[Rfam]
RNA: Glycine riboswitch aptamer
RNA sequence: AUGAUGGCAAAGGGAGAGAUUACUUGACAUUAAAGUAACGCCGAAGGGGUAAGCCAUAGGGUGAAUCUCUCAGGCAAAAGGACCUUUGUCGGACA
Numbered sequence: 001a002u003g004a005u006g007g008c009a010a011a012g013g014g015a016g017a018g019a020u021u022a023c024u025u026g027a028c029a030u031u032a033a034a035g036u037a038a039c040g041c042c043g044a045a046g047g048g049g050u051a052a053g054c055c056a057u058a059g060g061g062u063g064a065a066u067c068u069c070u071c072a073g074g075c076a077a078a079a080g081g082a083c084c085u086u087u088g089u090c091g092g093a094c095a
Stems, first nucleotide, its partner, number of pairs: 006090008020038006040075003043071002047069003053062002
Dot-bracket structure: .....((((((((......((((((.......)))))).(((((..(((...((......))....))))).))).......)))))))).....